Description:
miR-430 microRNA precursor family: a 70-nucleotide sequence from Gouania willdenowi. The base pairs follow the family's consensus structure, which was predicted with RNAalifold. Lineage of the source: Eukaryota > Opisthokonta > Eumetazoa > Blenniimorphae > Gouania.
RNA sequence: AAUAUUAUGCCAACAGAAGCACUAACUUGAACAUGAAAUGCAGUAAGUGCUUCUUUUUGGUGUACUAUUG
Numbered sequence: 001a002a003u004a005u006u007a008u009g010c011c012a013a014c015a016g017a018a019g020c021a022c023u024a025a026c027u028u029g030a031a032c033a034u035g036a037a038a039u040g041c042a043g044u045a046a047g048u049g050c051u052u053c054u055u056u057u058u059g060g061u062g063u064a065c066u067a068u069u070g
Stems, first nucleotide, its partner, number of pairs: 004066001006064006013057001015054009025044003
Gene Ontology terms of the family: RISC complex and miRNA-mediated post-transcriptional gene silencing.